The record is a 106-nucleotide sequence from Orobanche latisquama, which matches "Plastid-rps12 3UTR RNA" in Rfam. For this family Rfam cites "Retrograde signaling in plants: A critical review focusing on the GUN pathway and beyond" (Richter et al., Plant Commun, 2023). Rfam's curators write: Plastid rpl20 is a non-coding RNA (ncRNA) recognised in plastids. It was found in the three prime untranslated region (3UTR) of rps12 gene, its 3UTR location sugest a role in transcript maduration. It is one of the family's seed sequences. Rfam 15.1 lists 1,710 matches to the family in 1,426 species. NCBI's taxonomy places the organism under Eukaryota, Magnoliopsida, eudicotyledons, Pentapetalae, Orobanche. The base pairs follow the family's consensus structure, which was predicted with LocARNA.

[Rfam]
RNA sequence: GGUUUACGUUGGUACAAAUCCAAUCAACUUUUUUUUUUUUAUUUAAGAUGAGAAGUAAUUCUCCAUUGGUAAUAAAUAGUUAUCCAUUAAGCGGAAGAAAUCUUAU
Numbered sequence: 001g002g003u004u005u006a007c008g009u010u011g012g013u014a015c016a017a018a019u020c021c022a023a024u025c026a027a028c029u030u031u032u033u034u035u036u037u038u039u040u041a042u043u044u045a046a047g048a049u050g051a052g053a054a055g056u057a058a059u060u061c062u063c064c065a066u067u068g069g070u071a072a073u074a075a076a077u078a079g080u081u082a083u084c085c086a087u088u089a090a091g092c093g094g095a096a097g098a099a100a101u102c103u104u105a106u
Base pairs, nucleotide, nucleotide: 009023010022011021012020062095063094064093065087066086068084069083070082071081072080073079